Rfam assigns this 76-nucleotide sequence from Niallia nealsonii to the family "Glycine riboswitch aptamer".
Rfam 15.1 lists 9,425 matches to the family in 5,228 species.

RNA sequence: GGAGCCGCUUCUGGAGAGACCGCAAAGUCGGCACCGAAGGAUUCACAAUCUCAGGUAAAAGGACAGAAGAGUAACA
Number, nucleotide and partner (000 for none) at each position: 001g000002g000003a000004g000005c000006c071007g000008c069009u068010u067011c066012u065013g064014g000015a000016g000017a000018g000019a000020c031021c030022g029023c000024a000025a000026a000027g000028u000029c022030g021031g020032c000033a056034c055035c054036g052037a051038a000039g000040g050041a049042u048043u000044c000045a000046c000047a000048a042049u041050c040051u037052c036053a000054g035055g034056u033057a000058a000059a000060a000061g000062g000063a000064c013065a012066g011067a010068a009069g008070a000071g006072u000073a000074a000075c000076a000